[Rfam]
RNA sequence: GGAAUUCUUCGGGGCAGGGUGAGACAAUGGAGAGCAUUCAUUGUUGAUUCCCGACCGACGGUUAUAGUCCGUGAACUGCAGUUUGCAGCCGAUCCGGUGGAACUCCGGAACCGACAGUAUAGUCUGGAUGAGAGAAGAAAUUA
Number, nucleotide and partner (000 for none) at each position: 001g000002g000003a141004a000005u139006u138007c137008u136009u135010c134011g000012g000013g000014g000015c000016a000017g052018g051019g050020u000021g000022a000023g000024a000025c000026a000027a000028u000029g000030g000031a000032g000033a000034g000035c000036a000037u000038u000039c000040a000041u000042u000043g000044u000045u000046g000047a000048u000049u000050c019051c018052c017053g000054a123055c122056c113057g112058a072059c071060g070061g069062u000063u000064a000065u000066a000067g111068u110069c061070c060071g059072u058073g000074a000075a000076c088077u087078g000079c000080a000081g000082u000083u000084u000085g000086c000087a077088g076089c000090c000091g000092a000093u109094c108095c107096g106097g105098u000099g000100g000101a000102a000103c000104u000105c097106c096107g095108g094109a093110a068111c067112c057113g056114a000115c126116a125117g124118u000119a000120u000121a000122g055123u054124c117125u116126g115127g000128a000129u000130g000131a000132g000133a000134g010135a009136a008137g007138a006139a005140a000141u003142u000143a000
The family of this 143-nucleotide RNA from Roseburia sp. CAG:197 is "FMN riboswitch aptamer (RFN element)".
Rfam's curators write: The RFN element is a highly conserved domain that is found frequently in the 5'-untranslated regions of prokaryotic mRNAs that encode for flavin mononucleotide (FMN) biosynthesis and transport proteins.
The match comes from Rfam's covariance-model search (99 bits).
The family's consensus secondary structure is taken from published work.
Rfam links the family to the GO term FMN binding.